[Rfam]
Rfam assigns this 52-nucleotide RNA sequence from Jannaschia aquimarina to the family "serC leader". A search with the family's covariance model found it, with a score of 69 bits.
RNA sequence: CGGCGGGACACGCCCCCCCAACGGGGCGCGAAUAUCUGGAAGGAUACCAUGA
Numbered sequence: 001c002g003g004c005g006g007g008a009c010a011c012g013c014c015c016c017c018c019c020a021a022c023g024g025g026g027c028g029c030g031a032a033u034a035u036c037u038g039g040a041a042g043g044a045u046a047c048c049a050u051g052a
Stems, first nucleotide, its partner, number of pairs: 011028006033046005

This family is a putative regulatory RNA structure that is found upstream of the serC-serA operon in some alpha-proteobacteria. The base pairs follow the family's consensus structure. It is annotated as a cis-regulatory leader. The literature on the family includes a 2005 paper in Genome Biol by Corbino et al., "Evidence for a second class of S-adenosylmethionine riboswitches and other regulatory RNA motifs in alpha-proteobacteria". Taxonomically the source falls in Jannaschia (Bacteria, Pseudomonadati, Alphaproteobacteria, Rhodobacterales).